[Rfam]
Nucleotides: 116
Base pairs, nucleotide, nucleotide: 001049002048003047004046011042013040014039015038016037017036018035019034021032022031024083025082026081027080064111065110066109088099089098090097
Number, partner (000 for none) and nucleotide at each position: 001049a002048g003047a004046c005000g006000u007000u008000g009000a010000a011042g012000g013040a014039u015038a016037g017036c018035a019034g020000c021032g022031u023000a024083c025082c026081g027080g028000a029000a030000a031022g032021c033000c034019u035018u036017g037016c038015u039014a040013u041000a042011c043000g044000g045000a046004g047003u048002c049001u050000u051000u052000a053000a054000a055000a056000g057000g058000g059000g060000u061000u062000g063000u064111g065110c066109a067000g068000u069000g070000a071000a072000a073000c074000c075000u076000c077000a078000a079000a080027c081026c082025g083024g084000a085000g086000u087000a088099g089098g090097u091000c092000a093000a094000u095000g096000a097090a098089c099088c100000g101000a102000a103000u104000g105000a106000a107000a108000a109066u110065g111064c112000u113000c114000a115000a116000a